[Rfam]
RNA sequence: CACGUUCAUUUGCUAUUUGCAAAUAGCAAACGGAAGUAGGGAUACCGAAGGAACGCGAA
Numbered sequence: 001c002a003c004g005u006u007c008a009u010u011u012g013c014u015a016u017u018u019g020c021a022a023a024u025a026g027c028a029a030a031c032g033g034a035a036g037u038a039g040g041g042a043u044a045c046c047g048a049a050g051g052a053a054c055g056c057g058a059a
Stems, first nucleotide, its partner, number of pairs: 003055005009030009033056001039046002
The record is a 59-nucleotide sequence, which matches "Glutamine riboswitch aptamer (glnA leader)" in Rfam. The literature on the family includes a 2011 paper in RNA Biol by Ames and Breaker, "Bacterial aptamers that selectively bind glutamine". It is one of the family's seed sequences. Its family is annotated with glutamine binding in the Gene Ontology.